[Rfam]
RNA sequence: AAUGGAUUGUGAGUGAUGAUUCAAUUAGAUGUGCGAAUGGUUUCAUUAUGAGCACACAACACUAAAUUUGGCAAUUUUUAUCUGACACUUCCAUU
Numbered sequence: 001a002a003u004g005g006a007u008u009g010u011g012a013g014u015g016a017u018g019a020u021u022c023a024a025u026u027a028g029a030u031g032u033g034c035g036a037a038u039g040g041u042u043u044c045a046u047u048a049u050g051a052g053c054a055c056a057c058a059a060c061a062c063u064a065a066a067u068u069u070g071g072c073a074a075u076u077u078u079u080a081u082c083u084g085a086c087a088c089u090u091c092c093a094u095u
Base pairs, nucleotide, nucleotide: 001095002094003093004092005091006090009088010087011086

The family of this 95-nucleotide sequence from Brassica napus is "Small nucleolar RNA Z266". A search with the family's covariance model found it, with a score of 58 bits. Rfam links the family to the GO terms nucleolus and RNA processing. Pairs were carried over by alignment from the consensus structure, which was predicted with PFOLD. For this family Rfam cites "The high diversity of snoRNAs in plants: identification and comparative study of 120 snoRNA genes from Oryza sativa" (Chen et al., Nucleic Acids Res, 2003). It is annotated as a C/D-box small nucleolar RNA.